[Rfam]
RNA sequence: AUUGCUUCUCGGCCUUUUGGCUAAGAUCAAGUGCAGUAUCUGUUCUUAUCAGUUUAAUAUCUGAUACGUCCUCUAUCCAUAUUAAAUGGAUUUUUGGAGCAAGGAGAUGGAAUAGGGGCUUGCUCCGCCCACUCCAUGCAUUGACCUGGUAUUGCACUACUUCCAGGAACGGUGCGCUCCCC
Numbered sequence: 001a002u003u004g005c006u007u008c009u010c011g012g013c014c015u016u017u018u019g020g021c022u023a024a025g026a027u028c029a030a031g032u033g034c035a036g037u038a039u040c041u042g043u044u045c046u047u048a049u050c051a052g053u054u055u056a057a058u059a060u061c062u063g064a065u066a067c068g069u070c071c072u073c074u075a076u077c078c079a080u081a082u083u084a085a086a087u088g089g090a091u092u093u094u095u096g097g098a099g100c101a102a103g104g105a106g107a108u109g110g111a112a113u114a115g116g117g118g119c120u121u122g123c124u125c126c127g128c129c130c131a132c133u134c135c136a137u138g139c140a141u142u143g144a145c146c147u148g149g150u151a152u153u154g155c156a157c158u159a160c161u162u163c164c165a166g167g168a169a170c171g172g173u174g175c176g177c178u179c180c181c182c
Stems, first nucleotide, its partner, number of pairs: 007026003011022004047066006068073001103135004109129002115126004138175006145167005
RNA: U2 spliceosomal RNA
Organism: Ornithorhynchus anatinus